[Rfam]
RNA sequence: GCCGGGGUGGCGCAGUAGGUAGCGCGCUCGGCUGUUAAACCAAGACAUGGAUGAAGAGCGAACCUCCAUUCAGAAUAACUCGACAUGUCUCAUAUGGAAACCGAGCGGUCGGAGGUUCGAGUCCUCCCCCCGGCG
Numbered sequence: 001g002c003c004g005g006g007g008u009g010g011c012g013c014a015g016u017a018g019g020u021a022g023c024g025c026g027c028u029c030g031g032c033u034g035u036u037a038a039a040c041c042a043a044g045a046c047a048u049g050g051a052u053g054a055a056g057a058g059c060g061a062a063c064c065u066c067c068a069u070u071c072a073g074a075a076u077a078a079c080u081c082g083a084c085a086u087g088u089c090u091c092a093u094a095u096g097g098a099a100a101c102c103g104a105g106c107g108g109u110c111g112g113a114g115g116u117u118c119g120a121g122u123c124c125u126c127c128c129c130c131c132g133g134c135g
Stems, first nucleotide, its partner, number of pairs: 001134007010025004027105005111127005